[Rfam]
Nucleotides: 145
Base pairs, nucleotide, nucleotide: 002144003143004142005141006140007139008138009137010136011135012134013133016130017129018128019127020126021125024122025121026120
Number, partner (000 for none) and nucleotide at each position: 001000u002144u003143u004142g005141a006140g007139g008138g009137g010136a011135a012134u013133g014000u015000u016130g017129u018128c019127u020126g021125g022000c023000a024122c025121g026120a027000g028000g029000c030000c031000c032000u033000u034000a035000a036000c037000u038000u039000a040000g041000a042000u043000c044000u045000a046000u047000a048000u049000u050000u051000g052000a053000u054000u055000a056000u057000a058000u059000a060000u061000a062000u063000a064000u065000g066000u067000c068000u069000c070000u071000u072000c073000u074000u075000u076000a077000u078000u079000c080000a081000u082000u083000a084000g085000u086000c087000u088000a089000u090000a091000c092000a093000u094000g095000a096000a097000u098000g099000a100000u101000c102000a103000u104000u105000u106000u107000a108000c109000g110000g111000u112000u113000a114000a115000u116000g117000a118000c119000g120026u121025c122024g123000g124000a125021c126020c127019a128018g129017g130016c131000u132000u133013c134012a135011u136010u137009c138008c139007c140006c141005u142004c143003a144002a145000u
Rfam assigns this 145-nucleotide RNA sequence to the family "mir-166 microRNA precursor family". Rfam 15.1 lists 2,599 matches to the family in 229 species. About the family: This family represents the plant microRNA (miRNA) precursor mir-166. Its family is annotated with RISC complex and miRNA-mediated post-transcriptional gene silencing in the Gene Ontology. The family's consensus secondary structure was predicted with PFOLD. A reference for the family is Ambros (2001), "microRNAs: tiny regulators with great potential", Cell.